[Rfam]
RNA sequence: AUUCAAAUAGCUUAUAUUUAGAGUAUGACACUGAAGAUGUCAUGGAGAUUAAUUAAUCUUUGAAUA
Numbered sequence: 001a002u003u004c005a006a007a008u009a010g011c012u013u014a015u016a017u018u019u020a021g022a023g024u025a026u027g028a029c030a031c032u033g034a035a036g037a038u039g040u041c042a043u044g045g046a047g048a049u050u051a052a053u054u055a056a057u058c059u060u061u062g063a064a065u066a
Stems, first nucleotide, its partner, number of pairs: 001065007010024004026042005047058004
RNA: tRNA
Organism: Drosophila yakuba